SL2 RNA: a 112-nucleotide sequence from Caenorhabditis nigoni. Its family is annotated with mRNA trans splicing, via spliceosome in the Gene Ontology. It scores 62 bits against the family's covariance model. The literature on the family includes a 2000 paper in Mol Cell Biol by Evans and Blumenthal, "trans splicing of polycistronic Caenorhabditis elegans pre-mRNAs: analysis of the SL2 RNA". About the family: This family represents SL2 RNA. SL2 RNA is involved in trans splicing in lower eukaryotes. Trans-splicing is a form of RNA processing. Clan: SL clan.
RNA sequence: GCUCGUCAAGUCAACCAAUGUUAGCAUUGAAUUUCGACCUGUCGGUAAAACGAUUGUGUUGGAAAUCGUUCAAUUUUUGGAACUGCUUCUUCGGGGUAUCCGGGGAGGCGAA
Dot-bracket structure: ....((...((.(((....))).))...)..)..(((((.(((........))).).)))).........................(.((((..((...))...)))).)..
Numbered sequence: 001g002c003u004c005g006u007c008a009a010g011u012c013a014a015c016c017a018a019u020g021u022u023a024g025c026a027u028u029g030a031a032u033u034u035c036g037a038c039c040u041g042u043c044g045g046u047a048a049a050a051c052g053a054u055u056g057u058g059u060u061g062g063a064a065a066u067c068g069u070u071c072a073a074u075u076u077u078u079g080g081a082a083c084u085g086c087u088u089c090u091u092c093g094g095g096g097u098a099u100c101c102g103g104g105g106a107g108g109c110g111a112a
Stems, first nucleotide, its partner, number of pairs: 005032001006029001010025002013022003035061004039056001041054003087110001089108004095101002